Leucine operon leader: a 144-nucleotide RNA sequence from Shimwellia blattae.

[Rfam]
RNA sequence: UGGGGUCUGACUCAAUGAUUCACACUCAACGCCUACUCGGUCUACUACUAAUCGCAUUUUUCGUGCGCGGUAGCCUGGUGGGCGGCGUUGAACCUUGAGCCUUCUGACCAGCCAAAAAACCCGCGCCGUUGCGCGGGUUUUUUU
Numbered sequence: 001u002g003g004g005g006u007c008u009g010a011c012u013c014a015a016u017g018a019u020u021c022a023c024a025c026u027c028a029a030c031g032c033c034u035a036c037u038c039g040g041u042c043u044a045c046u047a048c049u050a051a052u053c054g055c056a057u058u059u060u061u062c063g064u065g066c067g068c069g070g071u072a073g074c075c076u077g078g079u080g081g082g083c084g085g086c087g088u089u090g091a092a093c094c095u096u097g098a099g100c101c102u103u104c105u106g107a108c109c110a111g112c113c114a115a116a117a118a119a120c121c122c123g124c125g126c127c128g129u130u131g132c133g134c135g136g137g138u139u140u141u142u143u144u
Stems, first nucleotide, its partner, number of pairs: 004104001009101001012098004017093001030084008045073005053067004116141011

Annotation: At least 6 amino acid operons are known to be regulated by attenuation. In each a leader sequence of 150-200 bp is found upstream of the first gene in the operon. This leader sequence can assume two different secondary structures known as the terminator and the anti-terminator structure. In each case the leader also codes for very short peptide sequence that is rich in the end product amino acid of the operon. Rfam links the family to the GO term leucine biosynthetic process. It scores 85 bits against the family's covariance model.